Rfam assigns this 70-nucleotide RNA sequence to the family "int-alpA RNA".
Acidobacteria (1 example), Planctomycetes (1 example), Proteobacteria.
Rfam 15.1 lists 577 matches to the family in 491 species.
[Rfam]
RNA sequence: CCAGUGGCUAGGGUAGCUCCCGAAAAGAAAUUAACACCAAUUUCCUGCCAUUAUUUUUGUUUAGAGGGUU
Numbered sequence: 001c002c003a004g005u006g007g008c009u010a011g012g013g014u015a016g017c018u019c020c021c022g023a024a025a026a027g028a029a030a031u032u033a034a035c036a037c038c039a040a041u042u043u044c045c046u047g048c049c050a051u052u053a054u055u056u057u058u059g060u061u062u063a064g065a066g067g068g069u070u
Stems, first nucleotide, its partner, number of pairs: 003052006011021003027044005033070003037067002